[Rfam]
RNA sequence: AGUAGAGAGAAUAGAUGCUGUGAGUAUAUCUGUUGCAUUUAUAUCACAGUGGCUGUUCUUUUUGUA
Numbered sequence: 001a002g003u004a005g006a007g008a009g010a011a012u013a014g015a016u017g018c019u020g021u022g023a024g025u026a027u028a029u030c031u032g033u034u035g036c037a038u039u040u041a042u043a044u045c046a047c048a049g050u051g052g053c054u055g056u057u058c059u060u061u062u063u064g065u066a
Base pairs, nucleotide, nucleotide: 003064004063006061007060008059009058010057011056012055016051017050018049019048020047021046022045026040
This 66-nucleotide sequence from Drosophila mojavensis belongs to the Rfam family "mir-6 microRNA precursor family". The organism belongs to mojavensis species complex, within Eukaryota. The family's consensus secondary structure was predicted with PFOLD. This family consists of the microRNA (miRNA) precursor mir-6 which appears to be Drosophila specific. Animal miRNAs are transcribed as ~70nt precursors and subsequently processed by the Dicer enzyme to give a ~22nt product. In this case the mature sequence comes from the 3' arm of the precursor. The extents of the hairpin precursors are not generally known and are estimated based on hairpin prediction.